The record is a 122-nucleotide RNA from Tribolium castaneum, which matches "U5 spliceosomal RNA" in Rfam. A search with the family's covariance model found it, with a score of 91 bits. Rfam 15.1 lists 28,527 matches to the family in 2,489 species.
[Rfam]
RNA sequence: CCACUCUGGUCUCACUUCAAAGCGAAUAAAUCUUUCGCCUUUUACUAAAGAUUUCCGUGGAGUGGGACAAUACAAAUGAGUCUAUGACAAUUUUUUGAGGCCCGGUUGGAGUUUCUCCGACU
Numbered sequence: 001c002c003a004c005u006c007u008g009g010u011c012u013c014a015c016u017u018c019a020a021a022g023c024g025a026a027u028a029a030a031u032c033u034u035u036c037g038c039c040u041u042u043u044a045c046u047a048a049a050g051a052u053u054u055c056c057g058u059g060g061a062g063u064g065g066g067a068c069a070a071u072a073c074a075a076a077u078g079a080g081u082c083u084a085u086g087a088c089a090a091u092u093u094u095u096u097g098a099g100g101c102c103c104g105g106u107u108g109g110a111g112u113u114u115c116u117c118c119g120a121c122u
Base pairs, nucleotide, nucleotide: 003081004080005079006078009068010067011066012065013064014063015062016061017060018059019058028054029053030052031051032050033049034048035047104122105121106120107119108118109117
Pairs were carried over by alignment from the consensus structure, which is taken from published work.